[Rfam]
RNA sequence: ACAUCAUUUCAAAAAGAGCUUAUGGGACCCAAACCAGGAACUCUUAAUGCUGUGACCUAAGAUUUAAGUUCUCCACAGGAUGUAACAGGCACUCAAUAGUGCUAUGCUUUCCUGAGGAGAUAUAAAA
Numbered sequence: 001a002c003a004u005c006a007u008u009u010c011a012a013a014a015a016g017a018g019c020u021u022a023u024g025g026g027a028c029c030c031a032a033a034c035c036a037g038g039a040a041c042u043c044u045u046a047a048u049g050c051u052g053u054g055a056c057c058u059a060a061g062a063u064u065u066a067a068g069u070u071c072u073c074c075a076c077a078g079g080a081u082g083u084a085a086c087a088g089g090c091a092c093u094c095a096a097u098a099g100u101g102c103u104a105u106g107c108u109u110u111c112c113u114g115a116g117g118a119g120a121u122a123u124a125a126a127a
Stems, first nucleotide, its partner, number of pairs: 004055004014045005020039002023037001026035001070120005077113004085105001087103002090101004